[Rfam]
RNA sequence: UAAUGGGAUAGAGGUUGCGGUGAACAAAAGUAGCGCUGCCGAGGCUCGGAGCGGUCCAUGACGCAGCGGGAAAGGGUUCACCGCCGAAGUUUGCGGCGCGCUCCGGCGGCGCAAGCUGGGCCUGCGGCCGAACAGGUGCAGGACUGCCAUCGCCUACGGCGGUGGAGCGCUAUCGCCAUU
Number, nucleotide and partner (000 for none) at each position: 001u000002a000003a000004u000005g000006g000007g174008a173009u172010a171011g170012a000013g000014g000015u000016u000017g084018c083019g082020g081021u080022g079023a078024a077025c076026a000027a000028a000029a000030g000031u000032a000033g000034c068035g067036c066037u065038g064039c063040c000041g000042a000043g000044g000045c000046u000047c000048g000049g000050a000051g000052c000053g000054g000055u000056c000057c000058a000059u000060g000061a000062c000063g039064c038065a037066g036067c035068g034069g000070g000071a000072a000073a000074g000075g000076g025077u024078u023079c022080a021081c020082c019083g018084c017085c000086g000087a000088a117089g116090u115091u114092u113093g112094c111095g110096g000097c108098g107099c106100g000101c000102u000103c000104c000105g000106g099107c098108g097109g000110c095111g094112c093113a092114a091115g090116c089117u088118g145119g144120g000121c142122c141123u140124g139125c138126g137127g000128c135129c000130g000131a000132a000133c000134a000135g128136g000137u126138g125139c124140a123141g122142g121143a000144c119145u118146g000147c165148c164149a163150u162151c161152g160153c159154c000155u000156a000157c000158g000159g153160c152161g151162g150163u149164g148165g147166a000167g000168c000169g000170c011171u010172a009173u008174c007175g000176c000177c000178a000179u000180u000
Rfam assigns this 180-nucleotide sequence from Geobacillus kaustophilus to the family "Lysine riboswitch aptamer". Riboswitches are metabolite binding domains within certain messenger RNAs that serve as precision sensors for their corresponding targets. Allosteric rearrangement of mRNA structure is mediated by ligand binding, and this results in modulation of gene expression. This family includes riboswitches that sense lysine in a number of genes involved in lysine metabolism, including lysC. A search with the family's covariance model found it, with a score of 122 bits. The base pairs follow the family's consensus structure, which is taken from published work.